Description: A member of the RNA family "SAM (S-adenosyl methionine) riboswitch aptamer" from Kocuria flava, 133 nucleotides long. The family's consensus secondary structure is taken from published work. It scores 63 bits against the family's covariance model. From the family's description: SAM-IV is a mRNA element that regulates gene expression via direct sensing of S-adenosylmethionine (SAM or AdoMet). The source organism's lineage runs through Bacteria, Bacillati, Actinomycetota, Micrococcaceae and Kocuria.

RNA sequence: CUUCACGAGACGCGGCCGCCAAGCUCCGACUGGGCCGCGCACCAACCCCAUGCUCAUCGGGUGGUUCGGAUGAGGAAGCGGCCCGCACCCCGGCGGUGGCUCCGCCGGUGACCGGUGCGGGCAAGAGCGAGCG
Dot-bracket structure: ((((....(.((((((.....((......))..)))))))(((..(((.((....)).))).))).........))))..(((((((((........................)))))))))...........
Numbered sequence: 001c002u003u004c005a006c007g008a009g010a011c012g013c014g015g016c017c018g019c020c021a022a023g024c025u026c027c028g029a030c031u032g033g034g035c036c037g038c039g040c041a042c043c044a045a046c047c048c049c050a051u052g053c054u055c056a057u058c059g060g061g062u063g064g065u066u067c068g069g070a071u072g073a074g075g076a077a078g079c080g081g082c083c084c085g086c087a088c089c090c091c092g093g094c095g096g097u098g099g100c101u102c103c104g105c106c107g108g109u110g111a112c113c114g115g116u117g118c119g120g121g122c123a124a125g126a127g128c129g130a131g132c133g
Stems, first nucleotide, its partner, number of pairs: 001078004009040001011039006022031002041065003046061003050057002081122009